[Rfam]
RNA sequence: UGAGGACCGUGUACCGCGGCCUCUGUCCGAGCCGGCCCUGGCGUACUUCCCCGACGCCAGGUCCAUGCGCUCGGACAGAGACCACGGUGCAUCGGGCCCUUUCC
Number, nucleotide and partner (000 for none) at each position: 001u000002g000003a000004g000005g000006a000007c000008c000009g000010u091011g090012u089013a088014c087015c086016g085017c000018g083019g082020c000021c080022u079023c078024u077025g076026u075027c074028c073029g072030a071031g070032c000033c000034g064035g063036c000037c061038c060039u059040g058041g057042c056043g055044u054045a000046c000047u000048u000049c000050c000051c000052c000053g000054a044055c043056g042057c041058c040059a039060g038061g037062u000063c035064c034065a000066u000067g000068c000069g000070c031071u030072c029073g028074g027075a026076c025077a024078g023079a022080g021081a000082c019083c018084a000085c016086g015087g014088u013089g012090c011091a010092u000093c000094g000095g000096g000097c000098c000099c000100u000101u000102u000103c000104c000
Shown here is a 104-nucleotide sequence from Mycobacterium sp. ITM-2016-00318, a member of the family "mraW RNA". NCBI's taxonomy places the organism under Bacteria, Bacillati, Actinomycetota, Mycobacteriales, Mycobacterium. The family's RNA type in Rfam is cis-regulatory element.